Background
drz-agam-2-2 ribozyme: a 188-nucleotide RNA sequence from Anopheles gambiae. Lineage of the source: Eukaryota > Metazoa > Aparaglossata > Diptera > Anopheles gambiae. It scores 170 bits against the family's covariance model.
RNA sequence: AGCACUACCUCGCUGAUACGGUGGUGGAUCCGAAGCCUCUAGAAGAUUAACAUAGGCUCUCCACCUCCUUCACCAACUCAAUACGUUCCCGUCGUACAGAACGGUAACAUGUCUCAAUUAUCCAAGCUAGGAUAUACGGGGAAAUCCAACCCCUUGGGCGGAUGGGUUGCAUGGCUAAAUUGAGAGGA
Numbered sequence: 001a002g003c004a005c006u007a008c009c010u011c012g013c014u015g016a017u018a019c020g021g022u023g024g025u026g027g028a029u030c031c032g033a034a035g036c037c038u039c040u041a042g043a044a045g046a047u048u049a050a051c052a053u054a055g056g057c058u059c060u061c062c063a064c065c066u067c068c069u070u071c072a073c074c075a076a077c078u079c080a081a082u083a084c085g086u087u088c089c090c091g092u093c094g095u096a097c098a099g100a101a102c103g104g105u106a107a108c109a110u111g112u113c114u115c116a117a118u119u120a121u122c123c124a125a126g127c128u129a130g131g132a133u134a135u136a137c138g139g140g141g142a143a144a145u146c147c148a149a150c151c152c153c154u155u156g157g158g159c160g161g162a163u164g165g166g167u168u169g170c171a172u173g174g175c176u177a178a179a180u181u182g183a184g185a186g187g188a
Stems, first nucleotide, its partner, number of pairs: 010101001021068001023065006030056002073187002077184006083095003087104002108173005113166003120163004128149001130147004151158002